[Rfam]
terC RNA: a 54-nucleotide RNA from Sphingorhabdus wooponensis.
RNA sequence: AAUGCGGGCCGGGCCCCUCUGGUCGUUAUAUGACGGCGAUGUCGGACCGCUUUA
Numbered sequence: 001a002a003u004g005c006g007g008g009c010c011g012g013g014c015c016c017c018u019c020u021g022g023u024c025g026u027u028a029u030a031u032g033a034c035g036g037c038g039a040u041g042u043c044g045g046a047c048c049g050c051u052u053u054a
Base pairs, nucleotide, nucleotide: 006048007047009045010044011043012042022037023036024035025034026033027032
Dot-bracket structure: .....((.((((.........((((((....))))))....)))).))......
Rfam classes the family as a cis-regulatory element.
Taxonomically the source falls in Sphingorhabdus (Bacteria, Pseudomonadota, Sphingomonadales, Sphingorhabdaceae).
It scores 52 bits against the family's covariance model.